[Rfam]
RNA: Archaeal large subunit ribosomal RNA, nucleotides 1830 to 1916
RNA sequence: AACUCGGCAAACUAGCCCCGUAACUUCGGGAUAAGGGGUGCCUGAGGCCUUGGCCGGAAGGCUGGGGCCUUAGGUCGCAGUGACAAG
Numbered sequence: 001a002a003c004u005c006g007g008c009a010a011a012c013u014a015g016c017c018c019c020g021u022a023a024c025u026u027c028g029g030g031a032u033a034a035g036g037g038g039u040g041c042c043u044g045a046g047g048c049c050u051u052g053g054c055c056g057g058a059a060g061g062c063u064g065g066g067g068c069c070u071u072a073g074g075u076c077g078c079a080g081u082g083a084c085a086a087g
Base pairs, nucleotide, nucleotide: 015039016038017037018036019035024029040075041074042073043072044071045070046069047068048067049066050065051064052063053062054061055060076080